Background: Alpha operon ribosome binding site: a 120-nucleotide RNA sequence from Gallibacterium salpingitidis. It scores 98 bits against the family's covariance model. Pairs were carried over by alignment from the consensus structure, which is taken from published work. Rfam links the family to the GO term ribosome binding.
[Rfam]
Nucleotides: 120
Stems, first nucleotide, its partner, number of pairs: 004055001006053008024104003031095004039119003
Number, partner (000 for none) and nucleotide at each position: 001000g002000u003000a004055u005000c006053g007052g008051u009050a010049u011048g012047u013046u014000g015000u016000u017000u018000g019000a020000g021000u022000a023000u024104c025103c026102u027000g028000a029000a030000a031095c032094g033093g034092g035000c036000u037000u038000u039119u040118c041117a042000g043000a044000u045000c046013a047012a048011c049010a050009u051008a052007c053006c054000a055004g056000a057000u058000u059000u060000u061000a062000g063000g064000u065000a066000a067000u068000c069000a070000a071000a072000a073000a074000a075000a076000u077000a078000g079000g080000a081000g082000u083000g084000c085000a086000u087000a088000g089000u090000g091000g092034c093033c094032c095031g096000u097000a098000u099000u100000g101000c102026a103025g104024g105000c106000a107000u108000u109000a110000a111000c112000a113000u114000u115000c116000c117041u118040g119039a120000u
Notes
Taxonomically the source falls in Gallibacterium (Bacteria, Pseudomonadati, Gammaproteobacteria, Pasteurellaceae). The bacterial alpha operon ribosome binding site is surrounded by this complex pseudoknotted structure.